[Rfam]
RNA sequence: AUAGUGGUCUUUUUUCAAGAAUCCAUCCUUGGGUCUCGAACAGCUUGGGGGCUUGGAGAGAGGAAUUCCACAACCUCCUUCAAAAUUCCAACAGUUUGCCUGUGCAUAGCCAUGACCAAGUAUCGCACAGAUAAAGAAGUGUAAGCAAGCAGAGUGUUUUGGCUAAUGCCUGGUAGACCGGCAAGUCACAAACGGCAACAGGCUCGGUUUAUGAGUCUU
Numbered sequence: 001a002u003a004g005u006g007g008u009c010u011u012u013u014u015u016c017a018a019g020a021a022u023c024c025a026u027c028c029u030u031g032g033g034u035c036u037c038g039a040a041c042a043g044c045u046u047g048g049g050g051g052c053u054u055g056g057a058g059a060g061a062g063g064a065a066u067u068c069c070a071c072a073a074c075c076u077c078c079u080u081c082a083a084a085a086u087u088c089c090a091a092c093a094g095u096u097u098g099c100c101u102g103u104g105c106a107u108a109g110c111c112a113u114g115a116c117c118a119a120g121u122a123u124c125g126c127a128c129a130g131a132u133a134a135a136g137a138a139g140u141g142u143a144a145g146c147a148a149g150c151a152g153a154g155u156g157u158u159u160u161g162g163c164u165a166a167u168g169c170c171u172g173g174u175a176g177a178c179c180g181g182c183a184a185g186u187c188a189c190a191a192a193c194g195g196c197a198a199c200a201g202g203c204u205c206g207g208u209u210u211a212u213g214a215g216u217c218u219u
Base pairs, nucleotide, nucleotide: 055081056080057079094178095177096176097175098174099173111168112167113166201217202216203215204214205213
A member of the RNA family "Early nodulin 40" from Hevea brasiliensis, 219 nucleotides long.
By type it is a non-coding RNA gene.
The match comes from Rfam's covariance-model search (100 bits).
Taxonomically the source falls in Hevea (Eukaryota, Euphyllophyta, Pentapetalae, fabids).
Pairs were carried over by alignment from the consensus structure, which is taken from published work.
On this family, see Gultyaev and Roussis, Nucleic Acids Res 2007: "Identification of conserved secondary structures and expansion segments in enod40 RNAs reveals new enod40 homologues in plants".